The record is a 200-nucleotide RNA from [Clostridium] symbiosum, which matches "Group II catalytic intron D1-D4-5" in Rfam.
The match comes from Rfam's covariance-model search (151 bits).
Rfam 15.1 lists 720 matches to the family in 418 species.
The pairing is the family consensus, mapped onto this sequence.
For this family Rfam cites "The ins and outs of group II introns" (Bonen and Vogel, Trends Genet, 2001).
[Rfam]
RNA sequence: GAGAACUGCAUAACUGAAAUCUCAAAUGAAGGGGCAACGCCCGGAAGGGGAUUCACUAAUACUCCGAAUAGCGUCAGCCGGAUACAGACGGCUGGGGUUAUCGAGCUCGGGGAAGUCGUGCGAAGCACACCCUAACGCCGGAAGGCGAGGAAAGAUUCGUAGAGGUACGGGUUGUGUGUGACAGUGCGGGUGGGGUUGCC
Numbered sequence: 001g002a003g004a005a006c007u008g009c010a011u012a013a014c015u016g017a018a019a020u021c022u023c024a025a026a027u028g029a030a031g032g033g034g035c036a037a038c039g040c041c042c043g044g045a046a047g048g049g050g051a052u053u054c055a056c057u058a059a060u061a062c063u064c065c066g067a068a069u070a071g072c073g074u075c076a077g078c079c080g081g082a083u084a085c086a087g088a089c090g091g092c093u094g095g096g097g098u099u100a101u102c103g104a105g106c107u108c109g110g111g112g113a114a115g116u117c118g119u120g121c122g123a124a125g126c127a128c129a130c131c132c133u134a135a136c137g138c139c140g141g142a143a144g145g146c147g148a149g150g151a152a153a154g155a156u157u158c159g160u161a162g163a164g165g166u167a168c169g170g171g172u173u174g175u176g177u178g179u180g181a182c183a184g185u186g187c188g189g190g191u192g193g194g195g196u197u198g199c200c
Stems, first nucleotide, its partner, number of pairs: 018053006032042003054192004064110004068101005074095007117188005125179006131150003137146002154173008